[Rfam]
RNA: RNase MRP
Organism: Dioscorea zingiberensis
RNA sequence: AACCCUUGGGAUGAAGUGGAUGGGUUCUUGAGGCCCAGGAAAGUCCCCGGGCCUGGUUUCACAGAGAUGUGACCCUCGAUAGAGGGACCCCUCCGUGCUUUGGUAAAAGGCUGAGACCAGUGUGGAGCCGUUGAUUGCCAAAGCCGGAGGUUUAUGGCCGUCUGAUCAACAGUUAUCCACUUGAUCUGAUAUAAAAUCUCAGAUAACAGAACGGGGAUUAUGAUCUCAAGGGU
Number, nucleotide and partner (000 for none) at each position: 001a000002a233003c232004c231005c230006u229007u228008g227009g226010g225011a224012u000013g000014a182015a181016g180017u179018g178019g177020a000021u000022g036023g035024g034025u033026u032027c000028u000029u000030g000031a000032g026033g025034c024035c023036c022037a000038g000039g000040a000041a219042a218043g000044u000045c216046c215047c214048c213049g000050g000051g000052c000053c000054u000055g000056g000057u000058u000059u000060c071061a070062c069063a068064g000065a000066g000067a000068u063069g062070u061071g060072a000073c086074c085075c084076u083077c082078g000079a000080u000081a000082g077083a076084g075085g074086g073087a000088c000089c000090c150091c149092u148093c147094c146095g145096u000097g144098c143099u142100u141101u000102g000103g000104u000105a000106a000107a000108a000109g139110g138111c137112u000113g000114a000115g000116a000117c000118c000119a000120g000121u130122g000123u000124g000125g000126a000127g000128c000129c000130g121131u000132u000133g000134a000135u000136u000137g111138c110139c109140a000141a100142a099143g098144c097145c095146g094147g093148a092149g091150g090151u000152u000153u000154a000155u000156g000157g000158c000159c000160g000161u000162c000163u000164g000165a000166u000167c000168a000169a000170c000171a000172g000173u000174u000175a000176u000177c019178c018179a017180c016181u015182u014183g000184a204185u203186c202187u201188g200189a199190u000191a000192u000193a000194a000195a000196a000197u000198c000199u189200c188201a187202g186203a185204u184205a000206a000207c000208a000209g000210a000211a000212c000213g048214g047215g046216g045217a000218u042219u041220a000221u000222g000223a000224u011225c010226u009227c008228a007229a006230g005231g004232g003233u002